[Rfam]
sRNA-Xcc1: a 92-nucleotide sequence from Pseudomonas aeruginosa. A reference for the family is Chen et al. (2011), "sRNA-Xcc1, an integron-encoded transposon- and plasmid-transferred trans-acting sRNA, is under the positive control of the key virulence regulators HrpG and HrpX of Xanthomonas campestris pathovar campestris", RNA Biol. Taxonomically the source falls in Pseudomonas aeruginosa (Bacteria, Pseudomonadati, Pseudomonadales, Pseudomonas). The sequence is in the family's curated seed alignment. By type it is a small RNA. The family's consensus secondary structure was predicted with RNAalifold.
RNA sequence: UGCCGGGAGUGGACUAAUAAAAAACCCGAAAGGGAAAUAUGUCCGGCCCUCUAGCUAGGUAGUAGGGUUUCUUAGCUCCCGGCGCCCAGCUU
Numbered sequence: 001u002g003c004c005g006g007g008a009g010u011g012g013a014c015u016a017a018u019a020a021a022a023a024a025c026c027c028g029a030a031a032g033g034g035a036a037a038u039a040u041g042u043c044c045g046g047c048c049c050u051c052u053a054g055c056u057a058g059g060u061a062g063u064a065g066g067g068u069u070u071c072u073u074a075g076c077u078c079c080c081g082g083c084g085c086c087c088a089g090c091u092u
Base pairs, nucleotide, nucleotide: 001084002083003082004081005080006079007078008077009076011044012043013042014041015039016038025034026033027032045069046068047067048066049065050064